This 123-nucleotide sequence from Gossypium raimondii belongs to the Rfam family "MIR7504 microRNA precursor family".

RNA sequence: AAUAGAAGAAUGAUAAAUCAGAUUUUUUCUUCUGAUUUUUAGCUUUUUCCUCCUAAAAAAAAUCAAAUCCAACUAAAAAUACUAAAACUCAAGAGAAAAAAUCGGAUUUAUCAUUCUCUUAUU
Numbered sequence: 001a002a003u004a005g006a007a008g009a010a011u012g013a014u015a016a017a018u019c020a021g022a023u024u025u026u027u028u029c030u031u032c033u034g035a036u037u038u039u040u041a042g043c044u045u046u047u048u049c050c051u052c053c054u055a056a057a058a059a060a061a062a063u064c065a066a067a068u069c070c071a072a073c074u075a076a077a078a079a080u081a082c083u084a085a086a087a088c089u090c091a092a093g094a095g096a097a098a099a100a101a102u103c104g105g106a107u108u109u110a111u112c113a114u115u116c117u118c119u120u121a122u123u
Base pairs, nucleotide, nucleotide: 001123002122003121004120005119007117008116009115010114011113012112013111014110015109016108017107018106019105021103022102023101024100025099026098027097029095030094031093033091034090035089037087038086039085041083042082045079046078047077048076

The family's consensus secondary structure was predicted with RNAalifold. Its family is annotated with miRNA-mediated post-transcriptional gene silencing and RISC complex in the Gene Ontology.